RNA sequence: CUUUGUUACGCAUAUCUAAUCACCUAAGUACAAUCUACAGUUCCUAAUAAUUGUGUAACAGGUAUAGAAAAACGUAUUAUUAGGUUUUAUAAUUCUGAUUAUGUAUUGUUUGAAAAAAAUAUACUGUUGUACGGUAAAUAAAAAAACCGCUAUUACAGCAGUAUCCUUUUCUUGCGCUCAUUUAAAUAUAGUUAUACGGCGGUUUUGAAUAAUUGAAGCUGUCGUAUUUUUUUCUUGAAAUUCG
Numbered sequence: 001c002u003u004u005g006u007u008a009c010g011c012a013u014a015u016c017u018a019a020u021c022a023c024c025u026a027a028g029u030a031c032a033a034u035c036u037a038c039a040g041u042u043c044c045u046a047a048u049a050a051u052u053g054u055g056u057a058a059c060a061g062g063u064a065u066a067g068a069a070a071a072a073c074g075u076a077u078u079a080u081u082a083g084g085u086u087u088u089a090u091a092a093u094u095c096u097g098a099u100u101a102u103g104u105a106u107u108g109u110u111u112g113a114a115a116a117a118a119a120u121a122u123a124c125u126g127u128u129g130u131a132c133g134g135u136a137a138a139u140a141a142a143a144a145a146a147c148c149g150c151u152a153u154u155a156c157a158g159c160a161g162u163a164u165c166c167u168u169u170u171c172u173u174g175c176g177c178u179c180a181u182u183u184a185a186a187u188a189u190a191g192u193u194a195u196a197c198g199g200c201g202g203u204u205u206u207g208a209a210u211a212a213u214u215g216a217a218g219c220u221g222u223c224g225u226a227u228u229u230u231u232u233u234c235u236u237g238a239a240a241u242u243c244g
Stems, first nucleotide, its partner, number of pairs: 002115003007105002011103001013101002017097001028077004034071001036069001038067001040065002043062003048057002078091003082087001122163009132149003194227005200221009
Cis-regulator of HTH transcription factor: a 244-nucleotide sequence from Clostridium cavendishii. Rfam classes the family as a cis-regulatory element. Rfam describes the family as follows. This element was identified by RNA deep sequencing of Clostridioides difficile 630 where it is located immediately upstream of an uncharacterized HTH-type Transcriptional regulator. Homologues are found widely across firmicutes, consistently located 5' of transcriptional regulators of similar size and sequence, which strongly supports a cis-regulatory function. RNA is referred to as CD630_SQ2397 in ref. Note: the sequence is highly conserved and shows no evidence for covariation as per R-scape analysis. The proposed secondary structure is therefore purely hypothetical. The sequence is in the family's curated seed alignment.